A member of the RNA family "Eukaryotic large subunit ribosomal RNA" from Cloeon dipterum, 531 nucleotides of a longer RNA. It scores 2876 bits against the family's covariance model. The source organism's lineage runs through Eukaryota, Arthropoda, Dicondylia, Pterygota and Cloeon. The family's consensus secondary structure is taken from published work.
RNA sequence: GAAGACCCUGUUGAGCUUGACUCUAGUUUGGCACUGUGAGGAGACAUGAGAGGUGUAGAAUAAGUGGGAGGUCGCAAGGCCGACAGUGAAAUACCACUACUCUCAUCGUUUCCUCACUUACUCGGUGAGGCGGAGCGCGUGCGGUCGUCUCGUACGACCCGCACGGUGUUCUCGCGCUAAGGGGGUACCGUGGCCGCGCGCGGCGGGGCGACUCGUCGCGCGCGGUCCUCUCCCGAUCCGAUCCGAGGACACUGCCAGGCGGGGAGUUUGACUGGGGCGGUACAUCUGUCAAACAAUAACGCAGGUGUCCUAAGGCCAGCUCAGCGAGGACAGAAACCUCGCGUAGAGCAAAAGGGCAAAUGCUGGCUUGAUCCCGAUGUUCAGUACGCAUAGGGACUGCGAAAGCACGGCCUAUCGAUCCUUUUGGUAUGGAGAGUUUCCAGCAAGAGGUGUCAGAAAAGUUACCACAGGGAUAACUGGCUUGUGGCGGCCAAGCGUUCAUAGCGACGUCGCUUUUUGAUCCUUCGAUGU
Numbered sequence: 001g002a003a004g005a006c007c008c009u010g011u012u013g014a015g016c017u018u019g020a021c022u023c024u025a026g027u028u029u030g031g032c033a034c035u036g037u038g039a040g041g042a043g044a045c046a047u048g049a050g051a052g053g054u055g056u057a058g059a060a061u062a063a064g065u066g067g068g069a070g071g072u073c074g075c076a077a078g079g080c081c082g083a084c085a086g087u088g089a090a091a092u093a094c095c096a097c098u099a100c101u102c103u104c105a106u107c108g109u110u111u112c113c114u115c116a117c118u119u120a121c122u123c124g125g126u127g128a129g130g131c132g133g134a135g136c137g138c139g140u141g142c143g144g145u146c147g148u149c150u151c152g153u154a155c156g157a158c159c160c161g162c163a164c165g166g167u168g169u170u171c172u173c174g175c176g177c178u179a180a181g182g183g184g185g186u187a188c189c190g191u192g193g194c195c196g197c198g199c200g201c202g203g204c205g206g207g208g209c210g211a212c213u214c215g216u217c218g219c220g221c222g223c224g225g226u227c228c229u230c231u232c233c234c235g236a237u238c239c240g241a242u243c244c245g246a247g248g249a250c251a252c253u254g255c256c257a258g259g260c261g262g263g264g265a266g267u268u269u270g271a272c273u274g275g276g277g278c279g280g281u282a283c284a285u286c287u288g289u290c291a292a293a294c295a296a297u298a299a300c301g302c303a304g305g306u307g308u309c310c311u312a313a314g315g316c317c318a319g320c321u322c323a324g325c326g327a328g329g330a331c332a333g334a335a336a337c338c339u340c341g342c343g344u345a346g347a348g349c350a351a352a353a354g355g356g357c358a359a360a361u362g363c364u365g366g367c368u369u370g371a372u373c374c375c376g377a378u379g380u381u382c383a384g385u386a387c388g389c390a391u392a393g394g395g396a397c398u399g400c401g402a403a404a405g406c407a408c409g410g411c412c413u414a415u416c417g418a419u420c421c422u423u424u425u426g427g428u429a430u431g432g433a434g435a436g437u438u439u440c441c442a443g444c445a446a447g448a449g450g451u452g453u454c455a456g457a458a459a460a461g462u463u464a465c466c467a468c469a470g471g472g473a474u475a476a477c478u479g480g481c482u483u484g485u486g487g488c489g490g491c492c493a494a495g496c497g498u499u500c501a502u503a504g505c506g507a508c509g510u511c512g513c514u515u516u517u518u519g520a521u522c523c524u525u526c527g528a529u530g531u
Stems, first nucleotide, its partner, number of pairs: 007471004012467002014463005020267004027259007036117010046106007063098005070081002121247005131240004139164005181234005270283001271281003284306006309410002315367006321347002324342006348357002372396004377391004398407003421449006430442003480521001482519001484518001486514006495505002